Rfam assigns this 322-nucleotide sequence from Hylia prasina to the family "7SK RNA".
RNA sequence: GGAUAUGAGGGUAAUCUGGCUGUGAGAUCAGAUAUGCAUGGGUUGAUCUGACUGAUCUGGCUAGCUUAGGCAGGUGUUUGCUUUCUUCCUUAGCAUUCCAUGUGUGUUCCUACUGAUGCUGUGUUCUUGGUUAAUGAGGACAGCCUCCCCAGUAGACAUGGUAUUGUUCAUUGGUCAAGGGUGAUGUGGUAGCUGGGCUCCCCUGCUGGAAGCUCUAAGUAAGCUCAAGGUCCAUUUAUGGAUGAAUGUAGGGUGGUCAAGCAUCCAAUACUGAAGACAUAUCCAAAUGAGAAGCUGCACGCAGCAGUAUGCCAGUGGCUUU
Numbered sequence: 001g002g003a004u005a006u007g008a009g010g011g012u013a014a015u016c017u018g019g020c021u022g023u024g025a026g027a028u029c030a031g032a033u034a035u036g037c038a039u040g041g042g043u044u045g046a047u048c049u050g051a052c053u054g055a056u057c058u059g060g061c062u063a064g065c066u067u068a069g070g071c072a073g074g075u076g077u078u079u080g081c082u083u084u085c086u087u088c089c090u091u092a093g094c095a096u097u098c099c100a101u102g103u104g105u106g107u108u109c110c111u112a113c114u115g116a117u118g119c120u121g122u123g124u125u126c127u128u129g130g131u132u133a134a135u136g137a138g139g140a141c142a143g144c145c146u147c148c149c150c151a152g153u154a155g156a157c158a159u160g161g162u163a164u165u166g167u168u169c170a171u172u173g174g175u176c177a178a179g180g181g182u183g184a185u186g187u188g189g190u191a192g193c194u195g196g197g198c199u200c201c202c203c204u205g206c207u208g209g210a211a212g213c214u215c216u217a218a219g220u221a222a223g224c225u226c227a228a229g230g231u232c233c234a235u236u237u238a239u240g241g242a243u244g245a246a247u248g249u250a251g252g253g254u255g256g257u258c259a260a261g262c263a264u265c266c267a268a269u270a271c272u273g274a275a276g277a278c279a280u281a282u283c284c285a286a287a288u289g290a291g292a293a294g295c296u297g298c299a300c301g302c303a304g305c306a307g308u309a310u311g312c313c314a315g316u317g318g319c320u321u322u
Stems, first nucleotide, its partner, number of pairs: 001099003006092006013084002018081001024078002027075003031071001033069001035063001037059002041057004045052001107161002111156001113130004118126001131152002138148003192262003198256002201253006213244001216241001219239005285322003291313001294308005
Rfam describes the family as follows. 7SK was discovered as an abundant small nuclear RNA in the mid-70s but a possible function has only recently been suggested.
The literature on the family includes a 2002 paper in Curr Biol by Blencowe, "Transcription: surprising role for an elusive small nuclear RNA".
The base pairs follow the family's consensus structure, which is taken from published work.
It scores 137 bits against the family's covariance model.
By type it is a non-coding RNA gene.